This 79-nucleotide RNA sequence from Coregonus sp. 'balchen' belongs to the Rfam family "Small nucleolar RNA SNORD72". The source organism's lineage runs through Eukaryota, Actinopteri, Neopterygii, Salmonidae and Coregonus. The literature on the family includes a 2001 paper in EMBO J by Huttenhofer et al., "RNomics: an experimental approach that identifies 201 candidates for novel, small, non-messenger RNAs in mouse". About the family: snoRNA HBII-240 belongs to the CD family of snoRNAs. It is the human orthologue of the mouse MBII-240 and is predicted to guide 2'O-ribose methylation of the large 28S rRNA at residue U4590.

RNA sequence: GUCUUGUCAGUGAUGAUUUCAAUACAAAUGUCUGAACAUAUGAAUUUCAGUGAUUCUUACUUUGUGACUGAGACAAGAC
Numbered sequence: 001g002u003c004u005u006g007u008c009a010g011u012g013a014u015g016a017u018u019u020c021a022a023u024a025c026a027a028a029u030g031u032c033u034g035a036a037c038a039u040a041u042g043a044a045u046u047u048c049a050g051u052g053a054u055u056c057u058u059a060c061u062u063u064g065u066g067a068c069u070g071a072g073a074c075a076a077g078a079c
Base pairs, nucleotide, nucleotide: 002078003077004076005075006074007073008072